[Rfam]
RNA sequence: GGUCAUGAGUGCCAGCGCAAAGCCCCGGCUCGCUGGCCGGCAACCCUCCUCGCGGUGGGGUGCCCCGGGUGAUGACCAGGCCCGCGCGUGGUUCCAGCGCCGGGCAAGCGCGACGU
Number, nucleotide and partner (000 for none) at each position: 001g077002g076003u075004c074005a000006u000007g000008a000009g038010u000011g037012c036013c035014a034015g033016c032017g000018c000019a000020a000021a030022g029023c000024c000025c000026c000027g000028g000029c022030u021031c000032g016033c015034u014035g013036g012037c011038c009039g064040g063041c062042a000043a000044c060045c059046c058047u000048c055049c054050u000051c000052g000053c000054g049055g048056u000057g000058g046059g045060g044061u000062g041063c040064c039065c000066c000067g000068g000069g000070u000071g000072a000073u000074g004075a003076c002077c001078a000079g000080g105081c104082c103083c102084g101085c000086g100087c099088g098089u096090g095091g000092u000093u000094c000095c090096a089097g000098c088099g087100c086101c084102g083103g082104g081105c080106a000107a000108g000109c000110g000111c000112g000113a000114c000115g000116u000
This 116-nucleotide RNA sequence from Nostocoides sp. F2B08 belongs to the Rfam family "SAM (S-adenosyl methionine) riboswitch aptamer".
SAM-IV is a mRNA element that regulates gene expression via direct sensing of S-adenosylmethionine (SAM or AdoMet). SAM-IV riboswitches share conserved nucleotide positions with the previously described SAM-I riboswitches sequence analysis and molecular recognition experiments suggest that SAM-I and SAM-IV riboswitches share similar ligand binding sites, but have different scaffolds.
The organism belongs to Nostocoides, within Bacteria.
A search with the family's covariance model found it, with a score of 102 bits.
On this family, see Weinberg et al., RNA 2008: "The aptamer core of SAM-IV riboswitches mimics the ligand-binding site of SAM-I riboswitches".